[Rfam]
RNA sequence: AAGGUGGCUUACGCCACGGCUAUGGACUGGUUUAUCGCAGUGUGCUACGCCUUU
Dot-bracket structure: (((..(((.((.(((((.((.(((((....))))).)).))).)))).))))))
Numbered sequence: 001a002a003g004g005u006g007g008c009u010u011a012c013g014c015c016a017c018g019g020c021u022a023u024g025g026a027c028u029g030g031u032u033u034a035u036c037g038c039a040g041u042g043u044g045c046u047a048c049g050c051c052u053u054u
Stems, first nucleotide, its partner, number of pairs: 001054003006051003010047002013045002015042003019038002022035005
Background: Rfam assigns this 54-nucleotide sequence from Vicugna pacos to the family "Editing element of GABA-3 exon 9". By type it is a cis-regulatory element. It scores 72 bits against the family's covariance model. The family has 52 seed sequences and 4,208 matches in Rfam 15.1.